[Rfam]
Background
The family of this 250-nucleotide part of an RNA from Olsenella sp. oral taxon 809 is "Bacterial large subunit ribosomal RNA". The family's consensus secondary structure is taken from published work. On this family, see Yusupov et al., Science 2001: "Crystal structure of the ribosome at 5.5 A resolution".
RNA sequence: GGAGAACUGAGGGAGGCUGCCCCUAGUACGAGAGGACCGGGGUGGACGGACCUCCGGUGAACGGGUUGUCAACCAAUGGCACUGCCCGGUAGCUGAGUCCGGUCUGGAUAACCGCUGAAAGCAUCUAAGCGGGAAGCCAGUCCCGAGAUGAGUUCUCCUUUCGGUAAGGCCCCUCGUAGACCACGAGGUUGAUAGGCCGCAGCUGCAAGCGCCGCGAGGCGCUCAGGCGAGCGGUACUAAUCGGCCGAGC
Numbered sequence: 001g002g003a004g005a006a007c008u009g010a011g012g013g014a015g016g017c018u019g020c021c022c023c024u025a026g027u028a029c030g031a032g033a034g035g036a037c038c039g040g041g042g043u044g045g046a047c048g049g050a051c052c053u054c055c056g057g058u059g060a061a062c063g064g065g066u067u068g069u070c071a072a073c074c075a076a077u078g079g080c081a082c083u084g085c086c087c088g089g090u091a092g093c094u095g096a097g098u099c100c101g102g103u104c105u106g107g108a109u110a111a112c113c114g115c116u117g118a119a120a121g122c123a124u125c126u127a128a129g130c131g132g133g134a135a136g137c138c139a140g141u142c143c144c145g146a147g148a149u150g151a152g153u154u155c156u157c158c159u160u161u162c163g164g165u166a167a168g169g170c171c172c173c174u175c176g177u178a179g180a181c182c183a184c185g186a187g188g189u190u191g192a193u194a195g196g197c198c199g200c201a202g203c204u205g206c207a208a209g210c211g212c213c214g215c216g217a218g219g220c221g222c223u224c225a226g227g228c229g230a231g232c233g234g235u236a237c238u239a240a241u242c243g244g245c246c247g248a249g250c
Stems, first nucleotide, its partner, number of pairs: 001158008011144004017045007047101005055095003062088005067081005105139003112132005165248001168246004172188005193239003196235005202228002209222005